[Rfam]
RNA sequence: AGUUGAUAAAGCCACAGCCGUCGCGAGGCGGUGUCGGAAAGCCACGGGUCUCCAAGGAGGAGACAGCCGGGUUGCCUGC
Numbered sequence: 001a002g003u004u005g006a007u008a009a010a011g012c013c014a015c016a017g018c019c020g021u022c023g024c025g026a027g028g029c030g031g032u033g034u035c036g037g038a039a040a041g042c043c044a045c046g047g048g049u050c051u052c053c054a055a056g057g058a059g060g061a062g063a064c065a066g067c068c069g070g071g072u073u074g075c076c077u078g079c
Base pairs, nucleotide, nucleotide: 012037013036017032018031019030020029021028022027040073041072042071043070045069046068047067048064049063050062051061052060053059

The record is a 79-nucleotide RNA from Candidatus Electrothrix marina, which matches "c-di-GMP-I riboswitch aptamer" in Rfam. A search with the family's covariance model found it, with a score of 57 bits. Lineage of the source: Bacteria > Thermodesulfobacteriota > Desulfobulbia > Desulfobulbaceae > Candidatus Electrothrix. Clan: c-di-GMP_I riboswitch clan.